[Rfam]
RNA: Hepatitis C virus J7880 RNA
RNA sequence: AUAAAGCUCCGGGCCUCCAAGGUGGACGCCAGGCUACUCACAACUGAGGAAGCCUGUGACCUAACACCCCCAAAGUCGGCUCGAUCAAAGUUCGGCUAUGGGGCCAAGGACGUCCGAGAGCAU
Numbered sequence: 001a002u003a004a005a006g007c008u009c010c011g012g013g014c015c016u017c018c019a020a021g022g023u024g025g026a027c028g029c030c031a032g033g034c035u036a037c038u039c040a041c042a043a044c045u046g047a048g049g050a051a052g053c054c055u056g057u058g059a060c061c062u063a064a065c066a067c068c069c070c071c072a073a074a075g076u077c078g079g080c081u082c083g084a085u086c087a088a089a090g091u092u093c094g095g096c097u098a099u100g101g102g103g104c105c106a107a108g109g110a111c112g113u114c115c116g117a118g119a120g121c122a123u
Base pairs, nucleotide, nucleotide: 008118010116012114013113014112016110017109018108022065023064025062028057029056032053035050037048038047039046068103069102070101071100074097075096076095077094078092079091080090